A member of the RNA family "MIR2655 microRNA precursor family" from Medicago truncatula, 215 nucleotides long. Gene Ontology terms of the family: miRNA-mediated post-transcriptional gene silencing and RISC complex.
[Rfam]
RNA sequence: CCCAUAAGUAAUAAAAGGUCUGUUUUGGCCCCUAAACUUUAUUAAAAAAAUUUAAUUCAAAAAACAUGUUAAAUUUUGAUCCCUUAUCUUAUUUAAUUAGUAUUAGUUUGGUCCCUAAACUUAACAUUUUUUUUGAAUUAAAUUAACAGAAAGGAUCAAACCGAUACUUUAAAUAAAGUUAAGGGACCUAAACGGACCUUUUAUUACUUAUGGAC
Dot-bracket structure: .(((((((..............(((.((..(((.(((((((((.(((........................................................................................................................))).))))))))).)))..)).)))..............)))))))..
Numbered sequence: 001c002c003c004a005u006a007a008g009u010a011a012u013a014a015a016a017g018g019u020c021u022g023u024u025u026u027g028g029c030c031c032c033u034a035a036a037c038u039u040u041a042u043u044a045a046a047a048a049a050a051u052u053u054a055a056u057u058c059a060a061a062a063a064a065c066a067u068g069u070u071a072a073a074u075u076u077u078g079a080u081c082c083c084u085u086a087u088c089u090u091a092u093u094u095a096a097u098u099a100g101u102a103u104u105a106g107u108u109u110g111g112u113c114c115c116u117a118a119a120c121u122u123a124a125c126a127u128u129u130u131u132u133u134u135g136a137a138u139u140a141a142a143u144u145a146a147c148a149g150a151a152a153g154g155a156u157c158a159a160a161c162c163g164a165u166a167c168u169u170u171a172a173a174u175a176a177a178g179u180u181a182a183g184g185g186a187c188c189u190a191a192a193c194g195g196a197c198c199u200u201u202u203a204u205u206a207c208u209u210a211u212g213g214a215c
Stems, first nucleotide, its partner, number of pairs: 002213007023192003027188002031184003035180009045170003